PyrR binding site: a 152-nucleotide RNA sequence from Shouchella oshimensis.
The organism belongs to Shouchella oshimensis, within Bacteria.

RNA sequence: GGUACCUUUAAACCAGUCCAGAGAGGCUGACAAGGACAGCGGAUGUGCGUUCCCAUUAUGGGGACGUAUAAGUUCGUCGAAGCGUUUUAAGCAUAGGCGCUUUCACGACCAAAAAGGCUAAUUGUCAGUUACGUGACAAUUAGCCUUUUUUU
Numbered sequence: 001g002g003u004a005c006c007u008u009u010a011a012a013c014c015a016g017u018c019c020a021g022a023g024a025g026g027c028u029g030a031c032a033a034g035g036a037c038a039g040c041g042g043a044u045g046u047g048c049g050u051u052c053c054c055a056u057u058a059u060g061g062g063g064a065c066g067u068a069u070a071a072g073u074u075c076g077u078c079g080a081a082g083c084g085u086u087u088u089a090a091g092c093a094u095a096g097g098c099g100c101u102u103u104c105a106c107g108a109c110c111a112a113a114a115a116g117g118c119u120a121a122u123u124g125u126c127a128g129u130u131a132c133g134u135g136a137c138a139a140u141u142a143g144c145c146u147u148u149u150u151u152u
Stems, first nucleotide, its partner, number of pairs: 005035004014029005041073001044070011114147014